RNA sequence: GACUUCAUGUGUCGAGCAAGCUUAAGCCGUUAGGUGUAGGCGUAGCGAAAGCGAGUCUGAAUAGGGCGAUAAGUUCGACGUAUGACGACCCGAAACCAGGUGAUCUAUCCAUGAGCAGGAUGAAGGUUGGGUAACACCAACUGGAGGUCCGAACCCGUGAAUGUUGAAAAAUUCUGGGAUGACUUGUGGAUAGGGGUGAAAGGCCAAUCAAACCUGGACAUAGCUGGUU
Dot-bracket structure: ....(((((((((((((..((((..(((....)))..))))...((....))..((((.....)))).....)))))))))))))...((.(...((((((...((((((((((((.((((...((((((......))))))....))))...(((..((((........)))).)))..).))))))))))).(((.....)))......))))))......).))..
Numbered sequence: 001g002a003c004u005u006c007a008u009g010u011g012u013c014g015a016g017c018a019a020g021c022u023u024a025a026g027c028c029g030u031u032a033g034g035u036g037u038a039g040g041c042g043u044a045g046c047g048a049a050a051g052c053g054a055g056u057c058u059g060a061a062u063a064g065g066g067c068g069a070u071a072a073g074u075u076c077g078a079c080g081u082a083u084g085a086c087g088a089c090c091c092g093a094a095a096c097c098a099g100g101u102g103a104u105c106u107a108u109c110c111a112u113g114a115g116c117a118g119g120a121u122g123a124a125g126g127u128u129g130g131g132u133a134a135c136a137c138c139a140a141c142u143g144g145a146g147g148u149c150c151g152a153a154c155c156c157g158u159g160a161a162u163g164u165u166g167a168a169a170a171a172u173u174c175u176g177g178g179a180u181g182a183c184u185u186g187u188g189g190a191u192a193g194g195g196g197u198g199a200a201a202g203g204c205c206a207a208u209c210a211a212a213c214c215u216g217g218a219c220a221u222a223g224c225u226g227g228u229u
Stems, first nucleotide, its partner, number of pairs: 005085013020041004026035003045052002055067004089227002092224001096217006105193011116181001118150004125142006154178003159174004195205003